About this RNA:
The family of this 118-nucleotide RNA sequence from Brassica napus is "MIR9563 microRNA precursor family". The source organism's lineage runs through Eukaryota, Spermatophyta, rosids, Brassicales and Brassica. The family's consensus secondary structure was predicted with RNAalifold.

RNA sequence: GGAAUAUAAGAAUCUGUCUCUUAACUUUUAACUAGAAAAGCUAAGAACCGGUUUUUAAAUAAGAGUUUUAAGAACCGGUUCUUAACUUUAAAAGUUAAGAGACGGAUUUUUAUAUUCC
Numbered sequence: 001g002g003a004a005u006a007u008a009a010g011a012a013u014c015u016g017u018c019u020c021u022u023a024a025c026u027u028u029u030a031a032c033u034a035g036a037a038a039a040g041c042u043a044a045g046a047a048c049c050g051g052u053u054u055u056u057a058a059a060u061a062a063g064a065g066u067u068u069u070a071a072g073a074a075c076c077g078g079u080u081c082u083u084a085a086c087u088u089u090a091a092a093a094g095u096u097a098a099g100a101g102a103c104g105g106a107u108u109u110u111u112a113u114a115u116u117c118c
Base pairs, nucleotide, nucleotide: 001118002117003116004115005114006113007112008111009110010109011108012107013106014105015104016103017102018101019100020099021098022097023096024095025094026093027092028091029090030089038088039087042084043083044082045081046080047079